[Rfam]
RNA: mir-29 microRNA precursor family
Organism: Coregonus sp. 'balchen'
Nucleotides: 069
Stems, first nucleotide, its partner, number of pairs: 001069004005064010016053001018051004025046004
Number, partner (000 for none) and nucleotide at each position: 001069g002068g003067a004066a005064a006063c007062u008061g009060g010059u011058u012057u013056c014055a015000g016053a017000c018051g019050g020049u021048g022000u023000u024000u025046u026045a027044g028043a029000g030000u031000a032000u033000c034000a035000u036000u037000a038000a039000c040000a041000u042000a043028u044027c045026u046025a047000g048021c049020a050019c051018c052000a053016u054000u055014u056013g057012a058011a059010a060009u061008c062007a063006g064005u065000g066004u067003u068002c069001u